[Rfam]
Background
The record is a 79-nucleotide RNA sequence from Methylophaga thiooxydans, which matches "SAH (S-adenosyl-L-homocysteine) riboswitch aptamer" in Rfam. Taxonomically the source falls in Methylophaga thiooxydans (Bacteria, Pseudomonadota, Thiotrichales, Piscirickettsiaceae). Its family is annotated with regulation of gene expression and S-adenosylhomocysteine metabolic process in the Gene Ontology. The family has 52 seed sequences and 1,354 matches in Rfam 15.1. Pairs were carried over by alignment from the consensus structure, which is taken from published work. A search with the family's covariance model found it, with a score of 44 bits.
Nucleotides: 079
Base pairs, nucleotide, nucleotide: 002048003047004046005045006044007043008042021035022034023033024032025031
Number, partner (000 for none) and nucleotide at each position: 001000u002048u003047g004046a005045a006044u007043a008042a009000g010000g011000a012000a013000c014000g015000c016000u017000g018000c019000a020000a021035c022034a023033g024032g025031u026000u027000a028000u029000u030000c031025a032024c033023c034022u035021g036000c037000u038000a039000g040000g041000c042008u043007u044006a045005u046004u047003c048002a049000c050000g051000u052000c053000g054000a055000g056000a057000u058000u059000u060000u061000u062000a063000a064000a065000c066000u067000g068000c069000g070000u071000u072000c073000a074000u075000u076000a077000u078000u079000a